[Rfam]
RNA sequence: CAGGGGGCUGAGGCAGCCGCGUGUGCUUUAGGGUGCGCGAGGAAAGUCCGGGCUCCACGAAACAUGGGUGGCGGGUAACGCCCGCCGAGUGGUGGCCUUCGGGUCAGCGCCUAGGGAAAGUGCCACAGAAAGCAUACCGCCGAUGGCUCCAUUGGAGAACAGGCAAGGAUGAAAGGGUGCGGUAAGAGCGCACCGGGGUUCUGGUAACAGCGCCCGCAUGGCAAACCCCACCCGGAGCAAGGCCAAAUAGGGGUCUCGCGCUCACCGCAAGGUAGGGCAGGGGUGUUUCGCCCUGAGGAGACCCGGGUUGGCUGCUUGAGCGCACUUGGCAACAGGUCGCCCAGAUGAAUGGUUGCCGCCGCGGAAGCUGGUCACCGAGGAAACGAGGUCGAUACCGUCCGUGGAUACAGAACCCGGCUUAUGACGCCCCCUGAUAU
Numbered sequence: 001c002a003g004g005g006g007g008c009u010g011a012g013g014c015a016g017c018c019g020c021g022u023g024u025g026c027u028u029u030a031g032g033g034u035g036c037g038c039g040a041g042g043a044a045a046g047u048c049c050g051g052g053c054u055c056c057a058c059g060a061a062a063c064a065u066g067g068g069u070g071g072c073g074g075g076u077a078a079c080g081c082c083c084g085c086c087g088a089g090u091g092g093u094g095g096c097c098u099u100c101g102g103g104u105c106a107g108c109g110c111c112u113a114g115g116g117a118a119a120g121u122g123c124c125a126c127a128g129a130a131a132g133c134a135u136a137c138c139g140c141c142g143a144u145g146g147c148u149c150c151a152u153u154g155g156a157g158a159a160c161a162g163g164c165a166a167g168g169a170u171g172a173a174a175g176g177g178u179g180c181g182g183u184a185a186g187a188g189c190g191c192a193c194c195g196g197g198g199u200u201c202u203g204g205u206a207a208c209a210g211c212g213c214c215c216g217c218a219u220g221g222c223a224a225a226c227c228c229c230a231c232c233c234g235g236a237g238c239a240a241g242g243c244c245a246a247a248u249a250g251g252g253g254u255c256u257c258g259c260g261c262u263c264a265c266c267g268c269a270a271g272g273u274a275g276g277g278c279a280g281g282g283g284u285g286u287u288u289c290g291c292c293c294u295g296a297g298g299a300g301a302c303c304c305g306g307g308u309u310g311g312c313u314g315c316u317u318g319a320g321c322g323c324a325c326u327u328g329g330c331a332a333c334a335g336g337u338c339g340c341c342c343a344g345a346u347g348a349a350u351g352g353u354u355g356c357c358g359c360c361g362c363g364g365a366a367g368c369u370g371g372u373c374a375c376c377g378a379g380g381a382a383a384c385g386a387g388g389u390c391g392a393u394a395c396c397g398u399c400c401g402u403g404g405a406u407a408c409a410g411a412a413c414c415c416g417g418c419u420u421a422u423g424a425c426g427c428c429c430c431c432u433g434a435u436a437u
Stems, first nucleotide, its partner, number of pairs: 001433008011422001012357007020039008044420003048417005053237004061288002066233005071085005086114001087112001089110002115228002120226002122222003137168002139164003144161002147157003176194006195217001196215004201210003241313004251304006280294005320340003324337005

Bacterial RNase P class A: a 437-nucleotide RNA sequence from Erythrobacter longus. The organism belongs to Erythrobacter, within Bacteria. Rfam describes the family as follows. Ribonuclease P (RNase P) is a ubiquitous endoribonuclease, found in archaea, bacteria and eukarya as well as chloroplasts and mitochondria. Rfam links the family to the GO terms tRNA processing, ribonuclease P activity and dimeric ribonuclease P complex. Its Rfam clan is "RNaseP clan".